[Rfam]
RNA sequence: UUCCUUCCUCCAAACACAGAUCUGUGUCCAGCGAUCCUGGCGUGCUCUCGGGCACUGUUGGUUGAUUGCUGCGACAGUUCGACGACCCAUGGGAACUUCACAAACCACAAUGGAGCACAUCCGGUCGACAGAUCUCAGAGCGAAUGUGGCGCGCAUCUGGAGCUCUUCGUGAGCUCGGUGUGUCGUCCGGGCGCUAUAUUCCAAGUCGUUCCUGAGCCCGUCGGGCGUUGAAGGUUGGGAAAAACCAUAGCUGCCUACAUCA
Numbered sequence: 001u002u003c004c005u006u007c008c009u010c011c012a013a014a015c016a017c018a019g020a021u022c023u024g025u026g027u028c029c030a031g032c033g034a035u036c037c038u039g040g041c042g043u044g045c046u047c048u049c050g051g052g053c054a055c056u057g058u059u060g061g062u063u064g065a066u067u068g069c070u071g072c073g074a075c076a077g078u079u080c081g082a083c084g085a086c087c088c089a090u091g092g093g094a095a096c097u098u099c100a101c102a103a104a105c106c107a108c109a110a111u112g113g114a115g116c117a118c119a120u121c122c123g124g125u126c127g128a129c130a131g132a133u134c135u136c137a138g139a140g141c142g143a144a145u146g147u148g149g150c151g152c153g154c155a156u157c158u159g160g161a162g163c164u165c166u167u168c169g170u171g172a173g174c175u176c177g178g179u180g181u182g183u184c185g186u187c188c189g190g191g192c193g194c195u196a197u198a199u200u201c202c203a204a205g206u207c208g209u210u211c212c213u214g215a216g217c218c219c220g221u222c223g224g225g226c227g228u229u230g231a232a233g234g235u236u237g238g239g240a241a242a243a244a245c246c247a248u249a250g251c252u253g254c255c256u257a258c259a260u261c262a
Stems, first nucleotide, its partner, number of pairs: 018135008026075003029071003033067004037061005042055005083127005092116001096112001146187001154180004160176006190255003193251005206240002208236001211234003216226004
RNA: A. fumigatus sRNA Afu_309
Organism: Fulvia fulva